[Rfam]
RNA: Small nucleolar RNA SNORA72
Organism: Marmota monax
RNA sequence: CUGUGAAUAUUCUCGCUGUUCUGAUUUUUGUAAUGAUCAGAACAGGCUAAACAUUCGCUAUAUUAAGACCACGCCUGUGUCCCCAGACCUCGUUCUUCCCCUGGGUCUGGUUUUCCAAAUGCUGGUGAUAAAC
Numbered sequence: 001c002u003g004u005g006a007a008u009a010u011u012c013u014c015g016c017u018g019u020u021c022u023g024a025u026u027u028u029u030g031u032a033a034u035g036a037u038c039a040g041a042a043c044a045g046g047c048u049a050a051a052c053a054u055u056c057g058c059u060a061u062a063u064u065a066a067g068a069c070c071a072c073g074c075c076u077g078u079g080u081c082c083c084c085a086g087a088c089c090u091c092g093u094u095c096u097u098c099c100c101c102u103g104g105g106u107c108u109g110g111u112u113u114u115c116c117a118a119a120u121g122c123u124g125g126u127g128a129u130a131a132a133c
Stems, first nucleotide, its partner, number of pairs: 003058003016045011068126004073122002083110008092101001